Overview: HDV ribozyme from F. prausnitzii: a 66-nucleotide RNA sequence from Oppiella nova. Rfam links the family to the GO term catalytic activity. Rfam 15.1 lists 3,803 matches to the family in 91 species. The base pairs follow the family's consensus structure, which is taken from published work. The source organism's lineage runs through Eukaryota, Eumetazoa, Chelicerata, Oribatida and Oppiella.

[Rfam]
RNA sequence: CUCUCCCAAUUGGUCACCUCCUCGUGGUGGGAGAGGGGCAACGGCUGAAAGCCGGCUAACGACCAA
Numbered sequence: 001c002u003c004u005c006c007c008a009a010u011u012g013g014u015c016a017c018c019u020c021c022u023c024g025u026g027g028u029g030g031g032a033g034a035g036g037g038g039c040a041a042c043g044g045c046u047g048a049a050a051g052c053c054g055g056c057u058a059a060c061g062a063c064c065a066a
Base pairs, nucleotide, nucleotide: 001035002034003033004032005031006030007029016028017027018026042054043053044052045051046050